[Rfam]
RNA sequence: CCAGUCCCGCUUUCAAGUAAUCCAGGAUAGGCUGUGGUCUGGGCAGUCAGCCUGUUCUCGGUUACUUGGCUCCGGAGCCGG
Dot-bracket structure: .(.((.(((....(((((((((.((((((((((...............)))))))))).)))))))))....))).)).).